[Rfam]
RNA: MIR408 microRNA precursor family
RNA sequence: AGGAAGAGAUAGGACAAAGGCUGGGAACAGGCAGAGCACGAAUGGAGCUAUCAACAGAAAAAUAGCGAAGAAAGGAACUCACAAUAAUGAGAGGAUAAAUCUGUUGUGGCUACGCUCAUGCACUGCCUCUUCCCUGGCUCUCUCUUUCCUACUCUAA
Numbered sequence: 001a002g003g004a005a006g007a008g009a010u011a012g013g014a015c016a017a018a019g020g021c022u023g024g025g026a027a028c029a030g031g032c033a034g035a036g037c038a039c040g041a042a043u044g045g046a047g048c049u050a051u052c053a054a055c056a057g058a059a060a061a062a063u064a065g066c067g068a069a070g071a072a073a074g075g076a077a078c079u080c081a082c083a084a085u086a087a088u089g090a091g092a093g094g095a096u097a098a099a100u101c102u103g104u105u106g107u108g109g110c111u112a113c114g115c116u117c118a119u120g121c122a123c124u125g126c127c128u129c130u131u132c133c134c135u136g137g138c139u140c141u142c143u144c145u146u147u148c149c150u151a152c153u154c155u156a157a
Stems, first nucleotide, its partner, number of pairs: 018139002021136001023134005029128006036121003040117002046111006